[Rfam]
RNA: Fluoride riboswitch aptamer (crcB RNA motif)
RNA sequence: ACGGUAUCGGGCGAUGGAGUCCGCCUGCCCCAACCGCUGGUUACCCAGCUGAUGACUCCUUUUCGGAG
Numbered sequence: 001a002c003g004g005u006a007u008c009g010g011g012c013g014a015u016g017g018a019g020u021c022c023g024c025c026u027g028c029c030c031c032a033a034c035c036g037c038u039g040g041u042u043a044c045c046c047a048g049c050u051g052a053u054g055a056c057u058c059c060u061u062u063u064c065g066g067a068g
Stems, first nucleotide, its partner, number of pairs: 010025004016059006036049004